Shown here is a 137-nucleotide RNA from Carlito syrichta, a member of the family "U12 minor spliceosomal RNA". The literature on the family includes a 1997 paper in Trends Biochem Sci by Tarn and Steitz, "Pre-mRNA splicing: the discovery of a new spliceosome doubles the challenge". Its Rfam clan is "U2 clan". The family's RNA type in Rfam is spliceosomal small nuclear RNA. The pairing is the family consensus, mapped onto this sequence. It scores 77 bits against the family's covariance model.
RNA sequence: AUGCCUUAAACUUAUGAGUAAGUCGAGGUGACACCCGAAUCCUCAUGCUACUGUGAGAUGAAUUUUUGAGCCAGUAAAGGUUGCCCCUAAGGUGACUCGCCUACUUUGCGGGAUGCCUAGGAGUUGAUAUCUGCCUG
Number, nucleotide and partner (000 for none) at each position: 001a000002u000003g000004c000005c022006u021007u020008a019009a000010a000011c000012u000013u000014a000015u000016g000017a000018g000019u008020a007021a006022g005023u000024c037025g036026a000027g034028g000029u000030g000031a000032c000033a000034c027035c000036c025037g024038a000039a000040u000041c000042c057043u056044c055045a054046u053047g000048c000049u000050a000051c000052u000053g046054u045055g044056a043057g042058a000059u000060g000061a000062a000063u000064u000065u000066u000067u000068g000069a000070g000071c137072c000073a000074g134075u133076a000077a000078a132079g131080g130081u129082u000083g000084c126085c000086c000087c121088u120089a000090a118091g117092g116093u115094g114095a000096c112097u111098c110099g109100c108101c000102u000103a000104c000105u000106u000107u000108g100109c099110g098111g097112g096113a000114u094115g093116c092117c091118u090119a000120g088121g087122a000123g000124u000125u000126g084127a000128u000129a081130u080131c079132u078133g075134c074135c000136u000137g071